This 70-nucleotide RNA belongs to the Rfam family "RAGATH-18 RNA".
The sequence is in the family's curated seed alignment.
Rfam's curators write: Actinobacteria, Firmicutes, Fusobacteria, Thermotogae (1 example).
Pairs were carried over by alignment from the consensus structure, which is taken from published work.
The family's RNA type in Rfam is small RNA.
RNA sequence: CCUUUGGAGAACUAUACAAACAAAAGUAGUAAUUAUAUAUAUUAUGAAAUUGGGUUCAUUGAAUAAGGAA
Numbered sequence: 001c002c003u004u005u006g007g008a009g010a011a012c013u014a015u016a017c018a019a020a021c022a023a024a025a026g027u028a029g030u031a032a033u034u035a036u037a038u039a040u041a042u043u044a045u046g047a048a049a050u051u052g053g054g055u056u057c058a059u060u061g062a063a064u065a066a067g068g069a070a
Stems, first nucleotide, its partner, number of pairs: 001068004009057005021052003029045003032040002